[Rfam]
This 93-nucleotide RNA from Gossypium klotzschianum belongs to the Rfam family "Small nucleolar RNA Z122". The family's RNA type in Rfam is C/D-box small nucleolar RNA. It scores 53 bits against the family's covariance model. Gene Ontology terms of the family: nucleolus and RNA processing. The base pairs follow the family's consensus structure, which was predicted with PFOLD.
RNA sequence: AUUGGGAAAUGAUGACAGCUUAAUUGCUGGAUAGUAUCUGAGCAAAGCUUUGAAGAUUUUUUUUUUCCUUUUGCACGUCAGUCUGAUUCCAAC
Numbered sequence: 001a002u003u004g005g006g007a008a009a010u011g012a013u014g015a016c017a018g019c020u021u022a023a024u025u026g027c028u029g030g031a032u033a034g035u036a037u038c039u040g041a042g043c044a045a046a047g048c049u050u051u052g053a054a055g056a057u058u059u060u061u062u063u064u065u066u067c068c069u070u071u072u073g074c075a076c077g078u079c080a081g082u083c084u085g086a087u088u089c090c091a092a093c
Stems, first nucleotide, its partner, number of pairs: 002092006